[Rfam]
A member of the RNA family "mir-320 microRNA precursor family" from Carlito syrichta, 71 nucleotides long. Its family is annotated with miRNA-mediated post-transcriptional gene silencing, negative regulation of gene expression and positive regulation of stem cell proliferation in the Gene Ontology. The family has 38 seed sequences and 659 matches in Rfam 15.1.
RNA sequence: GACAUGGUGGGCCUUCUCUUCCUAGUUCUUCCCAGUGUUGGGAAAAGCUGAGAGGGCAAAAAAAGAAAAAU
Dot-bracket structure: .............(((((.....((...((((((....))))))...))))))).................

The family's consensus secondary structure was predicted with RNAalifold.